Overview: The record is an 83-nucleotide sequence from Streptomyces sp. TS71-3, which matches "nrdJ RNA" in Rfam. A search with the family's covariance model found it, with a score of 68 bits. The family's RNA type in Rfam is small RNA.
Nucleotides: 083
Stems, first nucleotide, its partner, number of pairs: 005035007012027003016023001051072006057065001
Number, partner (000 for none) and nucleotide at each position: 001000a002000c003000c004000u005035g006034c007033c008032g009031g010030g011029g012027g013026c014025g015000g016023c017000g018000a019000c020000a021000g022000a023016g024000g025014c026013g027012u028000u029011c030010c031009c032008c033007g034006g035005u036000u037000c038000g039000a040000g041000a042000c043000a044000g045000a046000a047000c048000a049000c050000c051072g052071u053070g054069c055068c056067c057065g058000g059000g060000a061000a062000g063000a064000a065057c066000a067056g068055g069054g070053c071052a072051c073000u074000u075000c076000a077000g078000g079000g080000c081000g082000u083000u